[Rfam]
RNA sequence: AGACCAGUGGUUCGAAAUUCUCCCACAUUAAAAAACUAAAAAAGG
Numbered sequence: 001a002g003a004c005c006a007g008u009g010g011u012u013c014g015a016a017a018u019u020c021u022c023c024c025a026c027a028u029u030a031a032a033a034a035a036c037u038a039a040a041a042a043a044g045g
Stems, first nucleotide, its partner, number of pairs: 007026004016037001